[Rfam]
RNA sequence: UCCAGCGGUUGUCAGCUAUCCAGGCUCAUGUGGUGCCUGUGAUGGUGUUACACUGUUGGAAGAGCAAACACUGUCUUUAUUGAGGUUUGGCUCCAAGCACUGUUUUGGUGUUGUAGCUGAGUACCUUUGGGCAGUGUUUUGCACCUCUGAGAGUGGAAUGACUCCUGUGGAGUUGAUCCUAGUCUGGGUGCAAACAAU
Numbered sequence: 001u002c003c004a005g006c007g008g009u010u011g012u013c014a015g016c017u018a019u020c021c022a023g024g025c026u027c028a029u030g031u032g033g034u035g036c037c038u039g040u041g042a043u044g045g046u047g048u049u050a051c052a053c054u055g056u057u058g059g060a061a062g063a064g065c066a067a068a069c070a071c072u073g074u075c076u077u078u079a080u081u082g083a084g085g086u087u088u089g090g091c092u093c094c095a096a097g098c099a100c101u102g103u104u105u106u107g108g109u110g111u112u113g114u115a116g117c118u119g120a121g122u123a124c125c126u127u128u129g130g131g132c133a134g135u136g137u138u139u140u141g142c143a144c145c146u147c148u149g150a151g152a153g154u155g156g157a158a159u160g161a162c163u164c165c166u167g168u169g170g171a172g173u174u175g176a177u178c179c180u181a182g183u184c185u186g187g188g189u190g191c192a193a194a195c196a197a198u
Base pairs, nucleotide, nucleotide: 001060002059003058004057005056006055007054008053009052011051012050015046016045017044018043019042020041021039022038023037024036025035068137069136070135071134072133073132074131075130076129082127083126084125085124086123087120088119089118090117091116092115094113095112096111098110099109100108101107139193140192141191142190143189144188145187146186155179156178157177159175160174161173162172163171164170165169
The family of this 198-nucleotide RNA sequence is "Small nucleolar RNA SNORA74". It is one of the family's seed sequences. U19 belongs to the H/ACA class of snoRNAs. snoRNAs bind a number of proteins (including dyskerin, Gar1p and Nop10p in the case of the H/ACA class) to form snoRNP complexes. This class are thought to guide the sites of modification of uridines to pseudouridines by forming direct base pairing interactions with substrate RNAs. Pairs were carried over by alignment from the consensus structure, which was predicted with PFOLD. The literature on the family includes a 1998 paper in RNA by Bortolin and Kiss, "Human U19 intron-encoded snoRNA is processed from a long primary transcript that possesses little potential for protein coding".